[Rfam]
RNA: Mammalian CPEB3 ribozyme
Organism: Alligator sinensis
RNA sequence: GGUUGCUAGUUCAAGGCCAUAGCAGAAGUGCUUAUGGUGUGGCCCUGCCAGAUUCAAAGAAUCUGCAUAUUCGGCU
Numbered sequence: 001g002g003u004u005g006c007u008a009g010u011u012c013a014a015g016g017c018c019a020u021a022g023c024a025g026a027a028g029u030g031c032u033u034a035u036g037g038u039g040u041g042g043c044c045c046u047g048c049c050a051g052a053u054u055c056a057a058a059g060a061a062u063c064u065g066c067a068u069a070u071u072c073g074g075c076u
Base pairs, nucleotide, nucleotide: 015044016043017042018041021076022075023074025072026071027070028040029039030038049065050064051063052062053061054060055059